[Rfam]
RNA sequence: UUAUAGGGACGACCCUGUUAGGUAUCUGGUUACUCAAGGGACGACCCUG
Numbered sequence: 001u002u003a004u005a006g007g008g009a010c011g012a013c014c015c016u017g018u019u020a021g022g023u024a025u026c027u028g029g030u031u032a033c034u035c036a037a038g039g040g041a042c043g044a045c046c047c048u049g
Base pairs, nucleotide, nucleotide: 001020003018004017005016006015007014008013037048038047039046040045
Source information
The record is a 49-nucleotide RNA from Lucilia cuprina, which matches "Guanidine-II riboswitch aptamer (mini-ykkC)" in Rfam. It scores 32 bits against the family's covariance model. Rfam's curators write: Simpler in structure and has fewer highly conserved nucleotide positions than the ykkC-yxkD leader. Despite this each of its two stem-loop structures directly bind free guanidine. Therefore, mini-ykkC RNA motif represents a distinct class of guanidine-sensing RNAs. NCBI's taxonomy places the organism under Eukaryota, Metazoa, Eumetazoa, Calliphoridae, Lucilia.